[Rfam]
This 109-nucleotide sequence from Thalictrum thalictroides belongs to the Rfam family "small nucleolar RNA snoR126".
A search with the family's covariance model found it, with a score of 56 bits.
A reference for the family is Chen and Wu (2009), "Mining small RNA sequencing data: a new approach to identify small nucleolar RNAs in Arabidopsis", Nucleic Acids Res.
Rfam 15.1 lists 423 matches to the family in 200 species.
The organism belongs to Thalictrum, within Eukaryota.
The family's RNA type in Rfam is C/D-box small nucleolar RNA.

Nucleotides: 109
Stems, first nucleotide, its partner, number of pairs: 001108004
Number, partner (000 for none) and nucleotide at each position: 001108g002107g003106g004105c005000c006000u007000g008000u009000g010000a011000u012000g013000a014000c015000c016000a017000a018000a019000g020000c021000g022000u023000u024000u025000c026000u027000c028000g029000a030000u031000c032000c033000u034000g035000a036000u037000u038000g039000u040000u041000u042000u043000u044000a045000u046000u047000u048000u049000a050000a051000u052000a053000a054000u055000a056000a057000u058000a059000u060000u061000a062000a063000u064000u065000u066000a067000g068000a069000g070000a071000c072000c073000a074000a075000u076000c077000u078000u079000u080000g081000a082000u083000g084000a085000c086000u087000g088000u089000a090000u091000u092000u093000u094000u095000g096000c097000g098000u099000g100000c101000c102000u103000g104000a105004g106003c107002c108001u109000a